[Rfam]
RNA sequence: UAAAGGGGAGGAGAGACAAAUUCCACAUGCCUCUUUGUAAAUGAAAGAACCGAGGUUGAACAGAUCUAAUGACUGAGAUAUCCUUUCAGUCAUCAUUCUUUGAUUGAUGAUUCAAUUAUUACUCGUCCAUGU
Numbered sequence: 001u002a003a004a005g006g007g008g009a010g011g012a013g014a015g016a017c018a019a020a021u022u023c024c025a026c027a028u029g030c031c032u033c034u035u036u037g038u039a040a041a042u043g044a045a046a047g048a049a050c051c052g053a054g055g056u057u058g059a060a061c062a063g064a065u066c067u068a069a070u071g072a073c074u075g076a077g078a079u080a081u082c083c084u085u086u087c088a089g090u091c092a093u094c095a096u097u098c099u100u101u102g103a104u105u106g107a108u109g110a111u112u113c114a115a116u117u118a119u120u121a122c123u124c125g126u127c128c129a130u131g132u
Stems, first nucleotide, its partner, number of pairs: 009038001011036001013033003017029002071128001074125004080116002089111007097103002
Shown here is a 132-nucleotide RNA sequence from Populus tomentosa, a member of the family "Small nucleolar RNA snoR111".
The match comes from Rfam's covariance-model search (52 bits).
Gene Ontology terms of the family: RNA processing and nucleolus.
The base pairs follow the family's consensus structure, which was predicted with WAR.
The family has 6 seed sequences and 533 matches in Rfam 15.1.
The organism belongs to Populus, within Eukaryota.
For this family Rfam cites "Experimental RNomics: identification of 140 candidates for small non-messenger RNAs in the plant Arabidopsis thaliana" (Marker et al., Curr Biol, 2002).